Description
The family of this 100-nucleotide sequence from Tardiphaga sp. is "Glycine riboswitch aptamer". Its family is annotated with glycine biosynthetic process in the Gene Ontology. It scores 66 bits against the family's covariance model.
[Rfam]
RNA sequence: UCAGAUGAUGCGGGAGAGAUCGGUGUGGGCUUCGCCAGUGCCGGCGCCGAAGGAGCAACCCCCCGGGAAACUCUCAGGCACCAGGGACCGCAUUAUUGGA
Numbered sequence: 001u002c003a004g005a006u007g008a009u010g011c012g013g014g015a016g017a018g019a020u021c022g023g024u025g026u027g028g029g030c031u032u033c034g035c036c037a038g039u040g041c042c043g044g045c046g047c048c049g050a051a052g053g054a055g056c057a058a059c060c061c062c063c064c065g066g067g068a069a070a071c072u073c074u075c076a077g078g079c080a081c082c083a084g085g086g087a088c089c090g091c092a093u094u095a096u097u098g099g100a
Stems, first nucleotide, its partner, number of pairs: 006095008020044007046079003049075002053073003059066002